A member of the RNA family "Small nucleolar RNA R160" from Olea europaea, 80 nucleotides long. snoR160 is a C/D box small nucleolar RNA, which acts as a methylation guide for 25S ribosomal RNA in plants. snoR160 has been alternatively named snoZ270 in rice.
[Rfam]
RNA sequence: AGCAAAAUGAUGAAAAUUUAUAAGCCGAAUUUCAAUGUGGGGUUCUAAAUAUUAUGGUUUUUCAAAGUUCUCUGAUUGCU
Numbered sequence: 001a002g003c004a005a006a007a008u009g010a011u012g013a014a015a016a017u018u019u020a021u022a023a024g025c026c027g028a029a030u031u032u033c034a035a036u037g038u039g040g041g042g043u044u045c046u047a048a049a050u051a052u053u054a055u056g057g058u059u060u061u062u063c064a065a066a067g068u069u070c071u072c073u074g075a076u077u078g079c080u
Base pairs, nucleotide, nucleotide: 001080002079003078004077005076
Rfam classes the family as a C/D-box small nucleolar RNA. The literature on the family includes a 2003 paper in Nucleic Acids Res by Chen et al., "The high diversity of snoRNAs in plants: identification and comparative study of 120 snoRNA genes from Oryza sativa". A search with the family's covariance model found it, with a score of 55 bits. Its family is annotated with nucleolus and RNA processing in the Gene Ontology.